[Rfam]
RNA sequence: UCGUCAGUGCGGUACAUCCUGACCUGCCCCGCCCUGCGCGGGCAGCGCGUGAUGAGCGCGGCGUGAUGACGCAGUGAUUACGUCACCGCCGGCGGCGCGGGCUCGCGCAACAAAAGCCCGCGCUGCCAAAUGACUCUGAC
Numbered sequence: 001u002c003g004u005c006a007g008u009g010c011g012g013u014a015c016a017u018c019c020u021g022a023c024c025u026g027c028c029c030c031g032c033c034c035u036g037c038g039c040g041g042g043c044a045g046c047g048c049g050u051g052a053u054g055a056g057c058g059c060g061g062c063g064u065g066a067u068g069a070c071g072c073a074g075u076g077a078u079u080a081c082g083u084c085a086c087c088g089c090c091g092g093c094g095g096c097g098c099g100g101g102c103u104c105g106c107g108c109a110a111c112a113a114a115a116g117c118c119c120g121c122g123c124u125g126c127c128a129a130a131u132g133a134c135u136c137u138g139a140c
Stems, first nucleotide, its partner, number of pairs: 024045003028042005068089001071086001075080001093125011
RNA: U8 small nucleolar RNA
Organism: Alaudala cheleensis